Notes:
THF (Tetrahydrofolate) riboswitch aptamer: a 98-nucleotide RNA sequence from Lachnoclostridium sp. An131. For this family Rfam cites "A disconnect between high-affinity binding and efficient regulation by antifolates and purines in the tetrahydrofolate riboswitch" (Trausch and Batey, Chem Biol, 2014). NCBI's taxonomy places the organism under Bacteria, Bacillota, Clostridia, Lachnospirales, Lachnoclostridium. Rfam's curators write: Tetrahydrofolate (THF) riboswitch was first reported for Ames et al. as an RNA motif in 5' untranslated (5'-UTR)regions of folate transport and biosynthesis genes in Firmicutes genomes.
RNA sequence: UGCAAAAUAGGUUUUCAUGCGUCAAGUGUUCGGUGGAUGGGGAGUUGCCGCCGAAACGAAAAGCUAAGUCUUACGAUAUGGAGACCGCACCCGUUGCA
Numbered sequence: 001u002g003c004a005a006a007a008u009a010g011g012u013u014u015u016c017a018u019g020c021g022u023c024a025a026g027u028g029u030u031c032g033g034u035g036g037a038u039g040g041g042g043a044g045u046u047g048c049c050g051c052c053g054a055a056a057c058g059a060a061a062a063g064c065u066a067a068g069u070c071u072u073a074c075g076a077u078a079u080g081g082a083g084a085c086c087g088c089a090c091c092c093g094u095u096g097c098a
Stems, first nucleotide, its partner, number of pairs: 001098005010086010020075003026057002029055008040092003044088001061072003